[Rfam]
RNA sequence: GUAGGCUACGGUGACAUGGUCCCCCACCACUAUAGGGGGUAAGAUUGUGGGGUCGCUCUGUGCCAUUGCCGGUGUGCUGACCAUCGCCCUGCCUGUGCCUGUCAUAGUCUCCAAU
Numbered sequence: 001g002u003a004g005g006c007u008a009c010g011g012u013g014a015c016a017u018g019g020u021c022c023c024c025c026a027c028c029a030c031u032a033u034a035g036g037g038g039g040u041a042a043g044a045u046u047g048u049g050g051g052g053u054c055g056c057u058c059u060g061u062g063c064c065a066u067u068g069c070c071g072g073u074g075u076g077c078u079g080a081c082c083a084u085c086g087c088c089c090u091g092c093c094u095g096u097g098c099c100u101g102u103c104a105u106a107g108u109c110u111c112c113a114a115u
Stems, first nucleotide, its partner, number of pairs: 001115002004112002008108002011105001013103004018098001022095001038078004050064002
A member of the RNA family "Potassium channel RNA editing signal" from Synaphobranchus kaupii, 115 nucleotides long. Gene Ontology term of the family: adenosine to inosine editing. Rfam 15.1 lists 14,095 matches to the family in 1,000 species. Rfam classes the family as a cis-regulatory element. It scores 107 bits against the family's covariance model. This family represents a group of sequences related to the human potassium channel Kv1.1 hairpin element which directs the efficient modification of an adenosine to inosine by an adenosine deaminase acting on RNA (ADAR). The ADAR modification causes an isoleucine/valine recoding event which lies in the ion-conducting pore of the potassium channel.